[Rfam]
RNA sequence: UGGUAGAUGCACCCUGACUUACCCCCGAAGGACUUGAUCCUUUGGGGUUUCUCCU
Numbered sequence: 001u002g003g004u005a006g007a008u009g010c011a012c013c014c015u016g017a018c019u020u021a022c023c024c025c026c027g028a029a030g031g032a033c034u035u036g037a038u039c040c041u042u043u044g045g046g047g048u049u050u051c052u053c054c055u
Stems, first nucleotide, its partner, number of pairs: 002013003022047002025045008

This 55-nucleotide sequence from Romeriopsis navalis belongs to the Rfam family "Nitrogen stress-induced RNA 1". For this family Rfam cites "Heterocyst-specific transcription of NsiR1, a non-coding RNA encoded in a tandem array of direct repeats in cyanobacteria" (Ionescu et al., J Mol Biol, 2010). NCBI's taxonomy places the organism under Bacteria, Cyanobacteriota, Cyanophyceae, Leptolyngbyaceae, Romeriopsis navalis. It is annotated as a small RNA.